Rfam assigns this 103-nucleotide RNA from Clostridium acetireducens to the family "SAM riboswitch aptamer (S box leader)".
Pairs were carried over by alignment from the consensus structure, which is taken from published work.
[Rfam]
RNA sequence: UUCUUAUCAAGAUUGGUUGAGGGACUGGCCCUAUGACACCAAGCAACCUGAAUAUUUUAUUCAAGGUGCUAAUUCCAGCAGGAAUAUUCCUGAGAGAUAAGAG
Dot-bracket structure: ((((((((....(.(((...(((.[[[[)))......))))((((.((((((.......)))).))))))...(]]]](((((....)))))..)))))))))